[Rfam]
RNA sequence: UCACGACGAUGAAAAUUUAUACCUUACAUUCGCAGUUUCCACGGUAGGAGUACGCUUACGAACCCAUCGUUAGUACUCCCGGUGACCGCUCUUAUGAGACCUUCCUAGGAUGUCUGAGUGA
Numbered sequence: 001u002c003a004c005g006a007c008g009a010u011g012a013a014a015a016u017u018u019a020u021a022c023c024u025u026a027c028a029u030u031c032g033c034a035g036u037u038u039c040c041a042c043g044g045u046a047g048g049a050g051u052a053c054g055c056u057u058a059c060g061a062a063c064c065c066a067u068c069g070u071u072a073g074u075a076c077u078c079c080c081g082g083u084g085a086c087c088g089c090u091c092u093u094a095u096g097a098g099a100c101c102u103u104c105c106u107a108g109g110a111u112g113u114c115u116g117a118g119u120g121a
Stems, first nucleotide, its partner, number of pairs: 001121004048078006

Record summary
The family of this 121-nucleotide sequence from Torulaspora globosa is "Small nucleolar RNA SNORD14". The family's RNA type in Rfam is C/D-box small nucleolar RNA. The source organism's lineage runs through Eukaryota, Saccharomycotina, Saccharomycetes, Saccharomycetales and Torulaspora. The match comes from Rfam's covariance-model search (65 bits). Its family is annotated with nucleolus and RNA processing in the Gene Ontology. Rfam 15.1 lists 4,559 matches to the family in 936 species.